[Rfam]
RNA sequence: GUUGCUUCAUAUGGUGAACUCUUUCAAUUAACAUGGGGGUUGUUCUAGUUUCCCAAGCAUAGAUGAAUUGAUGCCAGUUCAUAACAGUGUGCUGCAAUCUCAGUUUGGGCUACACUACCUGUCUCCUGGUAAAUUC
Numbered sequence: 001g002u003u004g005c006u007u008c009a010u011a012u013g014g015u016g017a018a019c020u021c022u023u024u025c026a027a028u029u030a031a032c033a034u035g036g037g038g039g040u041u042g043u044u045c046u047a048g049u050u051u052c053c054c055a056a057g058c059a060u061a062g063a064u065g066a067a068u069u070g071a072u073g074c075c076a077g078u079u080c081a082u083a084a085c086a087g088u089g090u091g092c093u094g095c096a097a098u099c100u101c102a103g104u105u106u107g108g109g110c111u112a113c114a115c116u117a118c119c120u121g122u123c124u125c126c127u128g129g130u131a132a133a134u135u136c
Base pairs, nucleotide, nucleotide: 003059004058005057006056007055016045017044018043019042021039022038023037024036073130074129075128076127077126086116087115088114090112091110
A member of the RNA family "small nucleolar RNA snoR137" from Kalanchoe fedtschenkoi, 136 nucleotides long. It scores 65 bits against the family's covariance model. Rfam 15.1 lists 808 matches to the family in 221 species. It is annotated as an H/ACA-box small nucleolar RNA. Pairs were carried over by alignment from the consensus structure, which was predicted with RNAalifold.